Nucleotides: 057
Base pairs, nucleotide, nucleotide: 004052005051006050007049008048009047011045012044013043014042015041020037021036022035023034024033025032
Number, partner (000 for none) and nucleotide at each position: 001000a002000a003000a004052a005051g006050g007049a008048g009047c010000a011045a012044u013043a014042a015041c016000c017000g018000c019000c020037u021036u022035c023034u024033u025032g026000u027000u028000c029000u030000a031000g032025c033024a034023a035022g036021a037020g038000g039000g040000c041015g042014u043013u044012a045011u046000g047009g048008c049007u050006c051005c052004u053000c054000c055000u056000c057000u
Shown here is a 57-nucleotide RNA sequence from Lobelia urens, a member of the family "Plastid-psbA-3 3UTR RNA".
Rfam classes the family as a cis-regulatory element.
The base pairs follow the family's consensus structure, which was predicted with LocARNA.
The family is grouped with related families in Rfam's "Plastid-psbA 3UTR RNA clan".
The sequence is in the family's curated seed alignment.
For this family Rfam cites "Retrograde signaling in plants: A critical review focusing on the GUN pathway and beyond" (Richter et al., Plant Commun, 2023).